[Rfam]
Source information: This 76-nucleotide RNA sequence from Homo sapiens belongs to the Rfam family "mir-1286 microRNA precursor family". Its family is annotated with miRNA-mediated post-transcriptional gene silencing and RISC complex in the Gene Ontology. The base pairs follow the family's consensus structure, which was predicted with RNAalifold. The source organism's lineage runs through Eukaryota, Craniata, Amniota, Hominidae and Homo.

RNA sequence: UGUCCUCUGGGGACUCAGCUUGCUCUGGCUGCUGGAUUGAAUUAGCUGCAGGACCAAGAUGAGCCCUUGGUGGAGA
Numbered sequence: 001u002g003u004c005c006u007c008u009g010g011g012g013a014c015u016c017a018g019c020u021u022g023c024u025c026u027g028g029c030u031g032c033u034g035g036a037u038u039g040a041a042u043u044a045g046c047u048g049c050a051g052g053a054c055c056a057a058g059a060u061g062a063g064c065c066c067u068u069g070g071u072g073g074a075g076a
Stems, first nucleotide, its partner, number of pairs: 003074003007070006014063004019058004024053003028049002031046004